RNA sequence: AAUCGCAGUGACGACUCCAAAAUUCAAGCUCAACAGACCGGAUUGCAGGUUUAUCUCUCUGAUAAGAGAUCAUUUACUUGCGUGUCGAUUAUCCCGCUGAACUGAGCGAUU
Numbered sequence: 001a002a003u004c005g006c007a008g009u010g011a012c013g014a015c016u017c018c019a020a021a022a023u024u025c026a027a028g029c030u031c032a033a034c035a036g037a038c039c040g041g042a043u044u045g046c047a048g049g050u051u052u053a054u055c056u057c058u059c060u061g062a063u064a065a066g067a068g069a070u071c072a073u074u075u076a077c078u079u080g081c082g083u084g085u086c087g088a089u090u091a092u093c094c095c096g097c098u099g100a101a102c103u104g105a106g107c108g109a110u111u
Base pairs, nucleotide, nucleotide: 001111002110003109004108005107006106

The family of this 111-nucleotide sequence from Phtheirospermum japonicum is "Small nucleolar RNA Z107/R87". Taxonomically the source falls in Phtheirospermum (Eukaryota, eudicotyledons, asterids, Lamiales). Pairs were carried over by alignment from the consensus structure, which was predicted with RNAfold. The family's RNA type in Rfam is C/D-box small nucleolar RNA. On this family, see Barneche et al., J Mol Biol 2001: "Identification of 66 box C/D snoRNAs in Arabidopsis thaliana: extensive gene duplications generated multiple isoforms predicting new ribosomal RNA 2'-O-methylation sites". The match comes from Rfam's covariance-model search (96 bits).